[Rfam]
RNA sequence: AUGUUAUCACGAAAGGCAGAGGGAUUAGACCCAAUGAAGCCUUAGCAACCCUUUAGCUUUAAAGAAGGUGCUAAAUUCUACCACGCCACCGGCAUGGAUAGAUAACAA
Numbered sequence: 001a002u003g004u005u006a007u008c009a010c011g012a013a014a015g016g017c018a019g020a021g022g023g024a025u026u027a028g029a030c031c032c033a034a035u036g037a038a039g040c041c042u043u044a045g046c047a048a049c050c051c052u053u054u055a056g057c058u059u060u061a062a063a064g065a066a067g068g069u070g071c072u073a074a075a076u077u078c079u080a081c082c083a084c085g086c087c088a089c090c091g092g093c094a095u096g097g098a099u100a101g102a103u104a105a106c107a108a
Stems, first nucleotide, its partner, number of pairs: 002107007013043005021032003026080004044072004049068002051064004076100001081097003085093002
Rfam assigns this 108-nucleotide RNA sequence from Flavobacterium akiainvivens to the family "SAM riboswitch aptamer (S box leader)". Taxonomically the source falls in Flavobacterium (Bacteria, Flavobacteriia, Flavobacteriales, Flavobacteriaceae).